[Rfam]
RNA: mir-7360 microRNA precursor family
Organism: Monodelphis domestica
RNA sequence: UCCUUUCUGUAGGUAUAAUAUUUUAAUAAAAAAUUAAAUAUUGUAUCACAGAUUGGACU
Number, nucleotide and partner (000 for none) at each position: 001u057002c056003c055004u000005u000006u052007c051008u050009g049010u048011a000012g047013g046014u045015a044016u043017a042018a041019u040020a039021u038022u000023u037024u036025a035026a034027u033028a000029a000030a000031a000032a000033a027034u026035u025036a024037a023038a021039u020040a019041u018042u017043g016044u015045a014046u013047c012048a010049c009050a008051g007052a006053u000054u000055g003056g002057a001058c000059u000